[Rfam]
RNA sequence: GCUCUGGACAGCUGGUGUAGCUACAGAGAAGCCAGCUUCCUUCAGAGC
Numbered sequence: 001g002c003u004c005u006g007g008a009c010a011g012c013u014g015g016u017g018u019a020g021c022u023a024c025a026g027a028g029a030a031g032c033c034a035g036c037u038u039c040c041u042u043c044a045g046a047g048c
Base pairs, nucleotide, nucleotide: 001048002047003046004045005044006043007042010037011036012035013034014033015032016031017024018023
Annotation
A member of the RNA family "MAT2A 3'UTR stem loop C" from Gopherus evgoodei, 48 nucleotides long. The family's consensus secondary structure is taken from published work. The source organism's lineage runs through Eukaryota, Sauropsida, Durocryptodira, Testudinoidea and Gopherus.